[Rfam]
Nucleotides: 198
Base pairs, nucleotide, nucleotide: 019052020051021050022049023048031043032042034040054190055189056188057187064110065109066108067107068102069101070100071099072098074096075095076094077093079092080091081090117186118185119184120183121182126177127176128175129174130173131172132147133146134145153170154169155168156167157166158165159164
Number, partner (000 for none) and nucleotide at each position: 001000a002000a003000u004000a005000a006000c007000u008000g009000u010000a011000a012000a013000u014000c015000c016000a017000a018000u019052a020051a021050g022049a023048g024000g025000a026000a027000u028000g029000a030000u031043g032042g033000c034040g035000u036000a037000a038000c039000g040034u041000c042032c043031u044000g045000a046000a047000a048023c049022u050021c051020u052019u053000u054190u055189c056188c057187u058000a059000a060000u061000a062000c063000u064110a065109c066108g067107a068102u069101a070100u071099g072098c073000g074096u075095c076094u077093a078000a079092u080091g081090u082000a083000c084000u085000u086000u087000a088000a089000u090081a091080c092079a093077u094076a095075g096074a097000g098072g099071u100070g101069u102068a103000a104000a105000g106000c107067u108066c109065g110064u111000u112000g113000a114000a115000g116000u117186c118185a119184g120183u121182u122000g123000a124000g125000a126177g127176g128175u129174a130173g131172c132147c133146c134145u135000a136000a137000g138000a139000u140000a141000c142000u143000u144000u145134a146133g147132g148000a149000a150000a151000g152000g153170u154169a155168g156167u157166u158165u159164c160000a161000a162000u163000g164159g165158a166157a167156a168155c169154u170153a171000g172131g173130u174129u175128a176127c177126u178000g179000a180000u181000a182121g183120a184119c185118u186117g187057g188056g189055g190054a191000u192000c193000u194000a195000u196000a197000a198000a
Background:
Rfam assigns this 198-nucleotide RNA from Psychrilyobacter sp. S5 to the family "Group II catalytic intron D1-D4-5". Rfam describes the family as follows. Group II introns are found in rRNA, tRNA and mRNA of organelles in fungi, plants and protists, and also in mRNA in bacteria. Its family is annotated with Group II intron splicing in the Gene Ontology. The organism belongs to Psychrilyobacter, within Bacteria. The literature on the family includes a 2001 paper in EMBO J by Chu et al., "Control of branch-site choice by a group II intron". It scores 145 bits against the family's covariance model.